The record is a 184-nucleotide RNA sequence from Menidia menidia, which matches "Small nucleolar RNA SNORA81" in Rfam. The organism belongs to Menidia, within Eukaryota. A reference for the family is Gu et al. (2005), "A novel experimental approach for systematic identification of box H/ACA snoRNAs from eukaryotes", Nucleic Acids Res. Its family is annotated with nucleolus and RNA processing in the Gene Ontology. The family's consensus secondary structure was predicted with WAR. It scores 97 bits against the family's covariance model. By type it is an H/ACA-box small nucleolar RNA. The family has 28 seed sequences and 1,161 matches in Rfam 15.1.
RNA sequence: CCCUUCUCUUUAAAGCACCCUGCUAAAACUGCAGGAGCCGAGCCCUCCGGGUUCGGCUCGUGCGGCCGUGUAAGCACGGGUACACCAGGGAAGGAGAUUAAAGGCACAGUGUCGUAAAUGAGACGAGGAGGGACCUCUUUCUUAAUGUCCACUCUCCAUUGUCUCAAGAUCCUGUGUUACACUC
Numbered sequence: 001c002c003c004u005u006c007u008c009u010u011u012a013a014a015g016c017a018c019c020c021u022g023c024u025a026a027a028a029c030u031g032c033a034g035g036a037g038c039c040g041a042g043c044c045c046u047c048c049g050g051g052u053u054c055g056g057c058u059c060g061u062g063c064g065g066c067c068g069u070g071u072a073a074g075c076a077c078g079g080g081u082a083c084a085c086c087a088g089g090g091a092a093g094g095a096g097a098u099u100a101a102a103g104g105c106a107c108a109g110u111g112u113c114g115u116a117a118a119u120g121a122g123a124c125g126a127g128g129a130g131g132g133a134c135c136u137c138u139u140u141c142u143u144a145a146u147g148u149c150c151a152c153u154c155u156c157c158a159u160u161g162u163c164u165c166a167a168g169a170u171c172c173u174g175u176g177u178u179a180c181a182c183u184c
Base pairs, nucleotide, nucleotide: 018080019079021076022075023074024073028069029068031066035059037057038056039055040054041053042052043051044050103178104177105176106175107174108173109172111170126155128153131150132149133148